[Rfam]
RNA sequence: GAGACCUUUAACUAAAUCCAGCGAGAUUUAAAAGGUUGCCCUGAGAACACGUGUAUUUUAUUGUAACUACACGUAUACCUCUUUGCGACCUUAUGCAAAGAGGUUUUUUAA
Number, nucleotide and partner (000 for none) at each position: 001g000002a000003g037004a036005c035006c034007u033008u032009u031010a000011a000012c000013u030014a029015a028016a027017u026018c025019c000020a000021g000022c000023g000024a000025g018026a017027u016028u015029u014030a013031a009032a008033a007034g006035g005036u004037u003038g000039c000040c000041c000042u000043g000044a000045g000046a000047a000048c000049a074050c073051g072052u071053g070054u069055a068056u000057u066058u065059u000060a000061u000062u000063g000064u000065a058066a057067c000068u055069a054070c053071a052072c051073g050074u049075a106076u000077a104078c103079c102080u101081c100082u099083u098084u097085g096086c095087g094088a000089c000090c000091u000092u000093a000094u087095g086096c085097a084098a083099a082100g081101a080102g079103g078104u077105u000106u075107u000108u000109u000110a000111a000
Rfam assigns this 111-nucleotide sequence from Virgibacillus salinus to the family "PyrR binding site". A search with the family's covariance model found it, with a score of 56 bits. This family represents the PyrR binding site and terminator structure. Taxonomically the source falls in Virgibacillus (Bacteria, Bacillota, Bacilli, Bacillaceae).